[Rfam]
RNA sequence: GGGUAUUUGCGUGAGUCUGGUUUAAACGAGCUCCGUGCUAAGGAGUCAGGUCGAAAGGCCUCGUAGGUUCAAAUCCUACAAUACCCG
Numbered sequence: 001g002g003g004u005a006u007u008u009g010c011g012u013g014a015g016u017c018u019g020g021u022u023u024a025a026a027c028g029a030g031c032u033c034c035g036u037g038c039u040a041a042g043g044a045g046u047c048a049g050g051u052c053g054a055a056a057g058g059c060c061u062c063g064u065a066g067g068u069u070c071a072a073a074u075c076c077u078a079c080a081a082u083a084c085c086c087g
Base pairs, nucleotide, nucleotide: 001086002085003084004083005082006081007080010028011027012026030046031045032044033043034042063079064078065077066076067075
A member of the RNA family "tRNA" from Menderavirus IMESM1, 87 nucleotides long. Pairs were carried over by alignment from the consensus structure, which is taken from published work. The match comes from Rfam's covariance-model search (46 bits). The family's RNA type in Rfam is transfer RNA.